This 123-nucleotide RNA sequence from Trifolium medium belongs to the Rfam family "MIR408 microRNA precursor family".
RNA sequence: AGUUAGAGAGAAGACGAAGGCAGGGAACAGACAGAGCAUGGAUGGAACCAUCAACAGAGGAGAUAGCUGUUGUGGCUCCGCUCAUGCACUGCCUCUUCCCUGGCUUUGUUUCCAUUAAUAUUU
Numbered sequence: 001a002g003u004u005a006g007a008g009a010g011a012a013g014a015c016g017a018a019g020g021c022a023g024g025g026a027a028c029a030g031a032c033a034g035a036g037c038a039u040g041g042a043u044g045g046a047a048c049c050a051u052c053a054a055c056a057g058a059g060g061a062g063a064u065a066g067c068u069g070u071u072g073u074g075g076c077u078c079c080g081c082u083c084a085u086g087c088a089c090u091g092c093c094u095c096u097u098c099c100c101u102g103g104c105u106u107u108g109u110u111u112c113c114a115u116u117a118a119u120a121u122u123u
Stems, first nucleotide, its partner, number of pairs: 017106003021102007029094002032091003036087006045078002
The organism belongs to Trifolium, within Eukaryota.